[Rfam]
RNA sequence: GCCUUCUGCACAGGCGCUGUGCUAAAGCUGAGGGAAUAGGCUCCCAUGGUGGCUUUUGUAAUGAGGCCAGCAGAGUACACACAAGAUCAGUAACUGCACUAGACAGUAAAGACCAGGGUGAACCUCUUUCUUAAUGUCCAAUAUCCUUUGUCUUAAGAGUUCGUGCAAUAUGU
Numbered sequence: 001g002c003c004u005u006c007u008g009c010a011c012a013g014g015c016g017c018u019g020u021g022c023u024a025a026a027g028c029u030g031a032g033g034g035a036a037u038a039g040g041c042u043c044c045c046a047u048g049g050u051g052g053c054u055u056u057u058g059u060a061a062u063g064a065g066g067c068c069a070g071c072a073g074a075g076u077a078c079a080c081a082c083a084a085g086a087u088c089a090g091u092a093a094c095u096g097c098a099c100u101a102g103a104c105a106g107u108a109a110a111g112a113c114c115a116g117g118g119u120g121a122a123c124c125u126c127u128u129u130c131u132u133a134a135u136g137u138c139c140a141a142u143a144u145c146c147u148u149u150g151u152c153u154u155a156a157g158a159g160u161u162c163g164u165g166c167a168a169u170a171u172g173u
Base pairs, nucleotide, nucleotide: 017075018074020072021071022070023069028065029064031062034056035055039053041051043049044048095167096166097165098164099163101161102160115144117142119140120139122137
Notes
Shown here is a 173-nucleotide sequence from Myotis lucifugus, a member of the family "Small nucleolar RNA SNORA81". Gene Ontology terms of the family: nucleolus and RNA processing. Lineage of the source: Eukaryota > Tetrapoda > Chiroptera > Vespertilionidae > Myotis. The family has 28 seed sequences and 1,161 matches in Rfam 15.1. It scores 114 bits against the family's covariance model. Pairs were carried over by alignment from the consensus structure, which was predicted with WAR. On this family, see Gu et al., Nucleic Acids Res 2005: "A novel experimental approach for systematic identification of box H/ACA snoRNAs from eukaryotes". Rfam classes the family as an H/ACA-box small nucleolar RNA.